[Rfam]
RNA sequence: GGACUGCGAUGAGGUGAAAGGUUGCCGAGCAACAUCGAGGGGAAUUUUCACUGAGAAUGUCCGUUCAAGAAUCGGGCGACAG
Numbered sequence: 001g002g003a004c005u006g007c008g009a010u011g012a013g014g015u016g017a018a019a020g021g022u023u024g025c026c027g028a029g030c031a032a033c034a035u036c037g038a039g040g041g042g043a044a045u046u047u048u049c050a051c052u053g054a055g056a057a058u059g060u061c062c063g064u065u066c067a068a069g070a071a072u073c074g075g076g077c078g079a080c081a082g
Stems, first nucleotide, its partner, number of pairs: 014051003018048004025040002029036001058081004063077004
Dot-bracket structure: .............(((.((((...((..(......)..))....)))))))......((((.((((.......)))))))).
A member of the RNA family "S10-Clostridia ribosomal protein leader" from Thermotalea metallivorans, 82 nucleotides long. A reference for the family is Eckert and Weinberg (2020), "Discovery of 20 novel ribosomal leader candidates in bacteria and archaea", BMC Microbiol. NCBI's taxonomy places the organism under Bacteria, Bacillati, Bacillota, Peptostreptococcales, Thermotalea. The match comes from Rfam's covariance-model search (36 bits). The family's consensus secondary structure is taken from published work. It is annotated as a cis-regulatory leader.